The family of this 46-nucleotide RNA sequence from Bifidobacterium cuniculi is "L31-Actinobacteria ribosomal protein leader".
The family's RNA type in Rfam is cis-regulatory leader.
RNA sequence: ACGUAUCCGGUUCACGCCUGCCAUAGGGGCAUGGCGACCCGGGUCC
Numbered sequence: 001a002c003g004u005a006u007c008c009g010g011u012u013c014a015c016g017c018c019u020g021c022c023a024u025a026g027g028g029g030c031a032u033g034g035c036g037a038c039c040c041g042g043g044u045c046c
Stems, first nucleotide, its partner, number of pairs: 003046001005044001007042004015036004019031004
A search with the family's covariance model found it, with a score of 37 bits.